[Rfam]
A member of the RNA family "U5 spliceosomal RNA" from Chanos chanos, 116 nucleotides long. The base pairs follow the family's consensus structure, which is taken from published work. Taxonomically the source falls in Chanos (Eukaryota, Osteoglossocephalai, Otomorpha, Chanoidei).
RNA sequence: UAGCUCGGGUUUCUCUUUCAUUCACAUACAAGUCUUUCUCCUUUUACUAAAGAUUUCCAUGGAGAGGAGCUUUCAAGAGUUCUCUGUAUUUUUGGGAGCUCUGCCAAGGCAGAGCU
Numbered sequence: 001u002a003g004c005u006c007g008g009g010u011u012u013c014u015c016u017u018u019c020a021u022u023c024a025c026a027u028a029c030a031a032g033u034c035u036u037u038c039u040c041c042u043u044u045u046a047c048u049a050a051a052g053a054u055u056u057c058c059a060u061g062g063a064g065a066g067g068a069g070c071u072u073u074c075a076a077g078a079g080u081u082c083u084c085u086g087u088a089u090u091u092u093u094g095g096g097a098g099c100u101c102u103g104c105c106a107a108g109g110c111a112g113a114g115c116u
Stems, first nucleotide, its partner, number of pairs: 003080004009070010030056008096116001098115006